Rfam assigns this 350-nucleotide RNA to the family "Alphaproteobacteria transfer-messenger RNA". Pairs were carried over by alignment from the consensus structure, which is taken from published work. It is annotated as a non-coding RNA gene. Rfam's curators write: Bacterial tmRNA, also known as 10Sa RNA or SsrA, is named for its dual tRNA and mRNA-like properties. Its role is to liberate the mRNA from a stalled ribosome. To accomplish this part of the tmRNA is used as a reading frame that ends in a translation stop signal. It is one of the family's seed sequences.
RNA sequence: AUUCUUGAGGUUGGGAGAUGAAAUCCCUAUAUCCGAACUGCCGGGGCAACCCGGCUAUGUCGGUAGAAUGUCGGGUGGAAUAAGCAUUUCGGACCCGGGGGGCAGUACCCCGGCGCCUCCACCACCAGCAGCAACGGAUGUGCCGAGCUGUUGCUGAUGGGGGCGAAAUAGGAUCGACGAGUGCAGUAAAGGCCUGGUUGCCGAUCGGUAUGAGACCACCGUGACGGCUCAUCACACAAGUGCCAACGAUAACGAGGCGCUCGCUCUUGCUGCGUAACUGAGGUCCUAACGGAUUGAAGUUACAAGGCUAAAGCGCGGUUGGACCCCACCGGGCAACAGAAGGGGAUUCC
Numbered sequence: 001a002u003u004c005u006u007g008a009g010g011u012u013g014g015g016a017g018a019u020g021a022a023a024u025c026c027c028u029a030u031a032u033c034c035g036a037a038c039u040g041c042c043g044g045g046g047c048a049a050c051c052c053g054g055c056u057a058u059g060u061c062g063g064u065a066g067a068a069u070g071u072c073g074g075g076u077g078g079a080a081u082a083a084g085c086a087u088u089u090c091g092g093a094c095c096c097g098g099g100g101g102g103c104a105g106u107a108c109c110c111c112g113g114c115g116c117c118u119c120c121a122c123c124a125c126c127a128g129c130a131g132c133a134a135c136g137g138a139u140g141u142g143c144c145g146a147g148c149u150g151u152u153g154c155u156g157a158u159g160g161g162g163g164c165g166a167a168a169u170a171g172g173a174u175c176g177a178c179g180a181g182u183g184c185a186g187u188a189a190a191g192g193c194c195u196g197g198u199u200g201c202c203g204a205u206c207g208g209u210a211u212g213a214g215a216c217c218a219c220c221g222u223g224a225c226g227g228c229u230c231a232u233c234a235c236a237c238a239a240g241u242g243c244c245a246a247c248g249a250u251a252a253c254g255a256g257g258c259g260c261u262c263g264c265u266c267u268u269g270c271u272g273c274g275u276a277a278c279u280g281a282g283g284u285c286c287u288a289a290c291g292g293a294u295u296g297a298a299g300u301u302a303c304a305a306g307g308c309u310a311a312a313g314c315g316c317g318g319u320u321g322g323a324c325c326c327c328a329c330c331g332g333g334c335a336a337c338a339g340a341a342g343g344g345g346a347u348u349c350c
Stems, first nucleotide, its partner, number of pairs: 040055005059205005070198007085183003089180003095113005114165007206221004211231003216227002316331004321348002324345003